[Rfam]
RNA sequence: GCUUCUGAUGAUGAUUUCAAAUACUUUCGUUCUUCCGAGAGAUGUUCAAUGAGGAAGAAUUUUGGAGACCUGAACUGAAGAAGC
Numbered sequence: 001g002c003u004u005c006u007g008a009u010g011a012u013g014a015u016u017u018c019a020a021a022u023a024c025u026u027u028c029g030u031u032c033u034u035c036c037g038a039g040a041g042a043u044g045u046u047c048a049a050u051g052a053g054g055a056a057g058a059a060u061u062u063u064g065g066a067g068a069c070c071u072g073a074a075c076u077g078a079a080g081a082a083g084c
Base pairs, nucleotide, nucleotide: 003082004081005080006079
Shown here is an 84-nucleotide RNA from Apium graveolens, a member of the family "Small nucleolar RNA Z159/U59". Clan: SNORD59 clan. A reference for the family is Chen et al. (2003), "The high diversity of snoRNAs in plants: identification and comparative study of 120 snoRNA genes from Oryza sativa", Nucleic Acids Res. A search with the family's covariance model found it, with a score of 65 bits. The family has 10 seed sequences and 1,401 matches in Rfam 15.1. Pairs were carried over by alignment from the consensus structure, which was predicted with PFOLD. Lineage of the source: Eukaryota > Streptophytina > Spermatophyta > Apiales > Apium. By type it is a C/D-box small nucleolar RNA.